[Rfam]
Nucleotides: 261
Base pairs, nucleotide, nucleotide: 001159002158003157004156005155006154007153008152011145012144013143014142017045018044019043020042021041022040023039046103047102048101049100050099051098055096056095057094062089063088064087065086066085067082068081069080070079071078072077106140107139108138113133114132115131116130117129162173163172164171175258178256179255180254181253182198183197184196185195186194203249204248205247206245207244208243209242210241212238213237219232220231221230222229223228
Number, partner (000 for none) and nucleotide at each position: 001159g002158g003157a004156g005155g006154c007153u008152u009000g010000a011145g012144g013143g014142g015000a016000g017045c018044u019043g020042c021041u022040c023039c024000u025000a026000g027000u028000a029000c030000g031000a032000g033000a034000g035000g036000a037000c038000c039023g040022g041021a042020g043019u044018g045017g046103g047102g048101g049100c050099a051098c052000c053000u054000c055096u056095g057094g058000u059000g060000u061000a062089c063088c064087a065086g066085c067082u068081g069080u070079a071078g072077u073000g074000c075000c076000a077072g078071c079070u080069g081068c082067a083000c084000c085066g086065c087064u088063g089062g090000g091000u092000a093000g094057c095056c096055a097000a098051g099050u100049g101048u102047c103046c104000a105000u106140g107139g108138g109000a110000u111000a112000a113133c114132c115131g116130c117129u118000g119000a120000a121000g122000g123000c124000a125000u126000c127000u128000a129117a130116g131115c132114g133113g134000g135000a136000a137000g138108c139107c140106c141000a142014c143013c144012c145011c146000a147000a148000g149000a150000u151000a152008a153007g154006g155005c156004c157003u158002c159001c160000c161000u162173u163172g164171g165000c166000g167000c168000a169000a170000g171164c172163c173162a174000g175258u176000a177000a178256g179255g180254c181253c182198c183197c184196u185195g186194g187000g188000a189000g190000a191000c192000u193000a194186c195185c196184a197183g198182g199000u200000a201000g202000a203249u204248a205247g206245g207244c208243u209242g210241c211000a212238g213237g214000u215000g216000g217000a218000a219232g220231c221230c222229c223228g224000g225000u226000a227000a228223c229222g230221g231220g232219u233000g234000g235000a236000g237213c238212u239000g240000a241210g242209c243208a244207g245206u246000a247205c248204u249203a250000a251000u252000c253181g254180g255179c256178c257000g258175a259000g260000a261000g